[Rfam]
RNA sequence: UUUGGUCCUCGGUAGUGGCUGCCGGGAAGAAUGCCCGUUGGCCUCGAUCGAAGACCGGC
Numbered sequence: 001u002u003u004g005g006u007c008c009u010c011g012g013u014a015g016u017g018g019c020u021g022c023c024g025g026g027a028a029g030a031a032u033g034c035c036c037g038u039u040g041g042c043c044u045c046g047a048u049c050g051a052a053g054a055c056c057g058g059c
Base pairs, nucleotide, nucleotide: 002058003057004056005055006054007053009051010050011049012048013047017043018042019041020040021039023037024036025035026034028032
A member of the RNA family "Actino-pnp RNA" from Propionimicrobium lymphophilum, 59 nucleotides long. It scores 58 bits against the family's covariance model.